[Rfam]
RNA sequence: UUGGGGAACGCGCUCGCAUGGACGUGUGUACAGACGGAGCGCAGUGCCCGAGAGGGCGCCGUCGCUCGUAGGAGAUUUACAGCAUCACGUGGAGAAGGUCUUGGCAAUACCCCGUCCUCCCCGGCGGCGGCGUGUCUGCUGUCCGGGGCGGUUUUCCGAGACGGACCCGUCAUUGAUCGUGUACAUGGCGGCCGGCCAACAAGAAAUGCUCGCCCCGUCGGUUUCCGGCGGGGUCGCACCCGCAUGGCCCCGGAUUCGUCGUCCGUGAAGCGAUAGCUGCGGCCUGCAGCGCGGCGGUGGCGCCUGGGCGCCCCCCGCCGUGCUGCGCAGGAUCCGCGCCGCUGAGAUGGCCGGUCUUGUGCGGUGCUUGGAACAUGGGUCGGUGGGGUGACUUGAUAAUCAGUGCAAUGUGUGAGGGGCAGUCCAACCUGAUGUUUGCGCAGCAGGGAAGGAUCGCCUAACCCAAUCAAGACUACGAUGUUCCCAG
Number, nucleotide and partner (000 for none) at each position: 001u487002u486003g485004g484005g000006g000007a000008a481009c480010g479011c000012g000013c416014u415015c414016g413017c412018a411019u410020g000021g000022a090023c089024g088025u087026g086027u000028g000029u000030a000031c000032a000033g000034a000035c000036g000037g067038a066039g065040c064041g063042c061043a000044g000045u000046g000047c000048c000049c000050g000051a000052g000053a000054g000055g000056g000057c000058g000059c000060c000061g042062u000063c041064g040065c039066u038067c037068g000069u000070a000071g000072g000073a000074g000075a000076u000077u000078u000079a000080c000081a000082g000083c000084a000085u000086c026087a025088c024089g023090u022091g000092g000093a000094g000095a000096a000097g000098g000099u000100c471101u470102u469103g468104g467105c000106a000107a000108u000109a000110c388111c387112c386113c385114g000115u000116c000117c000118u000119c000120c000121c000122c000123g000124g000125c000126g000127g000128c000129g000130g000131c000132g000133u000134g000135u000136c000137u000138g000139c000140u000141g000142u000143c000144c000145g000146g000147g000148g000149c000150g000151g000152u000153u000154u000155u165156c164157c163158g000159a000160g000161a000162c000163g157164g156165a155166c000167c000168c190169g189170u188171c187172a186173u185174u000175g000176a000177u000178c000179g000180u000181g000182u000183a000184c000185a173186u172187g171188g170189c169190g168191g384192c383193c382194g381195g380196c379197c378198a000199a000200c000201a000202a000203g000204a000205a000206a000207u000208g000209c000210u000211c366212g365213c364214c363215c000216c000217g000218u000219c000220g000221g000222u000223u000224u000225c000226c000227g000228g000229c000230g000231g000232g000233g000234u000235c000236g000237c000238a000239c000240c000241c000242g000243c000244a000245u000246g000247g000248c000249c000250c000251c000252g000253g000254a000255u000256u000257c000258g000259u000260c000261g000262u000263c000264c000265g000266u000267g000268a000269a000270g000271c000272g000273a000274u000275a000276g000277c000278u000279g000280c000281g000282g000283c000284c000285u000286g000287c000288a000289g000290c000291g000292c000293g000294g000295c000296g000297g000298u000299g000300g000301c000302g000303c000304c000305u000306g000307g000308g000309c000310g000311c000312c000313c000314c000315c000316c000317g000318c000319c000320g000321u000322g000323c000324u000325g000326c000327g000328c000329a000330g000331g000332a000333u000334c000335c000336g000337c000338g000339c000340c000341g000342c000343u000344g000345a000346g000347a000348u000349g000350g000351c000352c000353g000354g000355u000356c000357u000358u000359g000360u000361g000362c000363g214364g213365u212366g211367c000368u000369u000370g000371g000372a000373a000374c000375a000376u000377g000378g197379g196380u195381c194382g193383g192384u191385g113386g112387g111388g110389u000390g000391a000392c000393u000394u000395g000396a000397u000398a000399a000400u000401c000402a000403g000404u000405g000406c000407a000408a000409u000410g019411u018412g017413u016414g015415a014416g013417g459418g458419g457420c456421a000422g454423u453424c452425c451426a000427a000428c000429c000430u000431g000432a000433u000434g000435u000436u000437u000438g000439c000440g000441c000442a000443g000444c000445a000446g000447g000448g000449a000450a000451g425452g424453a423454u422455c000456g420457c419458c418459u417460a000461a000462c000463c000464c000465a000466a000467u104468c103469a102470a101471g100472a000473c000474u000475a000476c000477g000478a000479u010480g009481u008482u000483c000484c004485c003486a002487g001